A member of the RNA family "ZMP/ZTP riboswitch aptamer (pfl RNA motif)" from Firmicutes bacterium CAG:227, 84 nucleotides long. It scores 51 bits against the family's covariance model. The family's consensus secondary structure is taken from published work.

RNA sequence: AGCAGUUUUGAUUUCUGACGGGUCAGUGUGGAGAACCACAGUGAAAUUAAAACGAAGUAAGAGCCGACCGUCUGGGCAGCAUUU
Number, nucleotide and partner (000 for none) at each position: 001a000002g000003c000004a000005g053006u052007u051008u050009u049010g048011a047012u046013u000014u000015c043016u000017g072018a071019c070020g069021g068022g000023u000024c000025a000026g000027u000028g039029u038030g037031g036032a000033g000034a000035a000036c031037c030038a029039c028040a000041g000042u000043g015044a000045a000046a012047u011048u010049a009050a008051a007052a006053c005054g000055a000056a000057g000058u000059a000060a000061g000062a000063g077064c076065c075066g000067a000068c021069c020070g019071u018072c017073u000074g000075g065076g064077c063078a000079g000080c000081a000082u000083u000084u000